Rfam assigns this 84-nucleotide RNA from Neogobius melanostomus to the family "mir-135 microRNA precursor family". Pairs were carried over by alignment from the consensus structure, which was predicted with PFOLD.
[Rfam]
RNA sequence: UUCCCAGUGCUGCGUAUGGCUUUUUAUUCCUAUCUGACUGUAUUGGGUUCAUAUAGGGAUGGAAGCCAUGCACAGAGCUGGGGA
Numbered sequence: 001u002u003c004c005c006a007g008u009g010c011u012g013c014g015u016a017u018g019g020c021u022u023u024u025u026a027u028u029c030c031u032a033u034c035u036g037a038c039u040g041u042a043u044u045g046g047g048u049u050c051a052u053a054u055a056g057g058g059a060u061g062g063a064a065g066c067c068a069u070g071c072a073c074a075g076a077g078c079u080g081g082g083g084a
Stems, first nucleotide, its partner, number of pairs: 002083007010075003014071010026060008035051003